[Rfam]
RNA: ilvH RNA
Organism: Ramlibacter albus
RNA sequence: GGCGAAGCUAUUGGUCGCCGAGCCCGCUGCUUACCGGCAGCGGGGGAGGGCGCCGAAAAGCCGAGCCG
Dot-bracket structure: ..........(((..((((...(((((((((....)))))))))....)))).)))............